Source information
A member of the RNA family "Small nucleolar RNA Z152/R70/R12/" from Arachis hypogaea, 112 nucleotides long. Pairs were carried over by alignment from the consensus structure, which was predicted with PFOLD. NCBI's taxonomy places the organism under Eukaryota, eudicotyledons, rosids, Dalbergieae, Arachis. It is annotated as a C/D-box small nucleolar RNA. Its family is annotated with nucleolus and RNA processing in the Gene Ontology.
RNA sequence: AGUGCAGUGACGAGAUGAAAACACUGGAUGUGUUUUUUGAGCAGUGGACGUUACCGUCAGGUUUCGCCGUGAGCUUAAUUUUUAAAAACGACUUCUCCUUCUUCUGAGCACU
Numbered sequence: 001a002g003u004g005c006a007g008u009g010a011c012g013a014g015a016u017g018a019a020a021a022c023a024c025u026g027g028a029u030g031u032g033u034u035u036u037u038u039g040a041g042c043a044g045u046g047g048a049c050g051u052u053a054c055c056g057u058c059a060g061g062u063u064u065c066g067c068c069g070u071g072a073g074c075u076u077a078a079u080u081u082u083u084a085a086a087a088a089c090g091a092c093u094u095c096u097c098c099u100u101c102u103u104c105u106g107a108g109c110a111c112u
Stems, first nucleotide, its partner, number of pairs: 001112005